[Rfam]
RNA sequence: UGGUGCGGUGUGGUCGGGUGCGGUGCGGUGCGGCACCGCAUAAAUCAAUUUCUCCGCACCCGACCGCACCGCACCCGACCACACCGCACCGC
Numbered sequence: 001u002g003g004u005g006c007g008g009u010g011u012g013g014u015c016g017g018g019u020g021c022g023g024u025g026c027g028g029u030g031c032g033g034c035a036c037c038g039c040a041u042a043a044a045u046c047a048a049u050u051u052c053u054c055c056g057c058a059c060c061c062g063a064c065c066g067c068a069c070c071g072c073a074c075c076c077g078a079c080c081a082c083a084c085c086g087c088a089c090c091g092c
Base pairs, nucleotide, nucleotide: 003089004088005087006086007085009083010082011081012080013079014078015077016076017075018074019073020072021071023069024068025067026066027065028064029063
The family of this 92-nucleotide RNA sequence from Apolygus lucorum is "mir-1421 microRNA precursor family". Rfam 15.1 lists 110 matches to the family in 14 species. The match comes from Rfam's covariance-model search (51 bits).